[Rfam]
RNA sequence: CUGCGUACCGGAACUCUAUCUGUGACUUGUGUUUUUCUUCUAUUCACAUCACAGGCAGAGUUCUAGCUAUGCGU
Number, nucleotide and partner (000 for none) at each position: 001c000002u000003g000004c071005g070006u069007a000008c066009c000010g064011g063012a062013a061014c060015u059016c058017u000018a000019u000020c054021u053022g052023u051024g050025a049026c000027u000028u000029g047030u046031g045032u000033u000034u000035u000036u000037c000038u000039u000040c000041u000042a000043u000044u000045c031046a030047c029048a000049u025050c024051a023052c022053a021054g020055g000056c000057a000058g016059a015060g014061u013062u012063c011064u010065a000066g008067c000068u000069a006070u005071g004072c000073g000074u000
Record summary
A member of the RNA family "mir-11 microRNA precursor family" from Phaedon cochleariae, 74 nucleotides long. On this family, see Skalsky et al., BMC Genomics 2010: "Identification of microRNAs expressed in two mosquito vectors, Aedes albopictus and Culex quinquefasciatus". Gene Ontology terms of the family: cellular response to gamma radiation, RISC complex and miRNA-mediated post-transcriptional gene silencing. The organism belongs to Phaedon, within Eukaryota. Clan: mir-6 clan.